[Rfam]
About this RNA: Shown here is a 97-nucleotide RNA, a member of the family "SAM-I/IV (S-adenosyl methionine) riboswitch aptamer". The base pairs follow the family's consensus structure, which is taken from published work. Its family is annotated with regulation of gene expression and S-adenosylmethionine metabolic process in the Gene Ontology.
RNA sequence: AUUUUACAUCUAUAGAGAAGGGUGACCUUCACCAACCAGCCAGACUUGGCAACGGUGGUUCAACGAUGUGGCUUUUGAAGCAACAAUAAAGUCAGAU
Numbered sequence: 001a002u003u004u005u006a007c008a009u010c011u012a013u014a015g016a017g018a019a020g021g022g023u024g025a026c027c028u029u030c031a032c033c034a035a036c037c038a039g040c041c042a043g044a045c046u047u048g049g050c051a052a053c054g055g056u057g058g059u060u061c062a063a064c065g066a067u068g069u070g071g072c073u074u075u076u077g078a079a080g081c082a083a084c085a086a087u088a089a090a091g092u093c094a095g096a097u
Stems, first nucleotide, its partner, number of pairs: 006069005015030001018029004031059003036055002039050003046091002071081004